[Rfam]
Nucleotides: 180
Base pairs, nucleotide, nucleotide: 026042027041028040044086045085046084047083048082049081050080051079052078053077061076062075063074064073065072087179089177090176092174
Number, partner (000 for none) and nucleotide at each position: 001000g002000a003000u004000u005000c006000c007000u008000u009000c010000a011000a012000a013000g014000g015000g016000g017000a018000g019000u020000a021000g022000c023000g024000a025000u026042c027041g028040a029000g030000u031000a032000g033000u034000a035000c036000u037000u038000a039000c040028u041027c042026g043000a044086a045085u046084c047083a048082a049081a050080g051079u052078c053077g054000u055000c056000a057000u058000g059000a060000c061076g062075u063074g064073a065072a066000c067000a068000a069000c070000u071000g072065u073064u074063c075062a076061c077053c078052g079051g080050c081049u082048u083047u084046g085045a086044u087179g088000g089177c090176a091000u092174a093000a094000u095000g096000a097000c098000u099000a100000u101000g102000c103000u104000u105000u106000g107000c108000a109000a110000g111000a112000c113000c114000u115000u116000u117000g118000c119000c120000a121000u122000g123000u124000u125000c126000a127000g128000u129000u130000a131000a132000a133000u134000g135000a136000c137000u138000g139000u140000g141000g142000c143000a144000g145000a146000g147000g148000u149000c150000u151000u152000u153000u154000u155000a156000u157000g158000u159000c160000u161000u162000c163000u164000g165000u166000c167000u168000c169000g170000u171000u172000u173000a174092u175000u176090u177089g178000a179087u180000u

A member of the RNA family "Manganese Mn2+ riboswitch aptamer (yybP-ykoY)" from Shouchella lonarensis, 180 nucleotides long.
Pairs were carried over by alignment from the consensus structure.
Lineage of the source: Bacteria > Bacillati > Bacilli > Bacillaceae > Shouchella.
From the family's description: This RNA was originally discovered in E. coli during a large scale screen and was named SraF. The family was later found to exist upstream of related families of protein genes in many bacteria, including the the yybP and ykoK genes in B. subtilis. The specific functions of these proteins are unknown, but this structured RNA element may be involved in their genetic regulation as a riboswitch.